[Rfam]
RNA sequence: CGAUGAAACCCAUUAAUGGCGGGCCUUGUCGAAGACCCCCAUUCUUCACAAUUUUUGGCAGGCUAACUGGAGUUAGCCUU
Numbered sequence: 001c002g003a004u005g006a007a008a009c010c011c012a013u014u015a016a017u018g019g020c021g022g023g024c025c026u027u028g029u030c031g032a033a034g035a036c037c038c039c040c041a042u043u044c045u046u047c048a049c050a051a052u053u054u055u056u057g058g059c060a061g062g063c064u065a066a067c068u069g070g071a072g073u074u075a076g077c078c079u080u
Base pairs, nucleotide, nucleotide: 021038022037023036025034026033027032060079061078062077063076064075065074066073067072
Annotation
The family of this 80-nucleotide sequence from Globodera rostochiensis is "SmY spliceosomal RNA". Pairs were carried over by alignment from the consensus structure, which is taken from published work. Taxonomically the source falls in Globodera (Eukaryota, Chromadorea, Tylenchomorpha, Tylenchoidea). The family's RNA type in Rfam is spliceosomal small nuclear RNA. A reference for the family is Jia et al. (2007), "Systematic identification of non-coding RNA 2,2,7-trimethylguanosine cap structures in Caenorhabditis elegans", BMC Mol Biol. A search with the family's covariance model found it, with a score of 39 bits.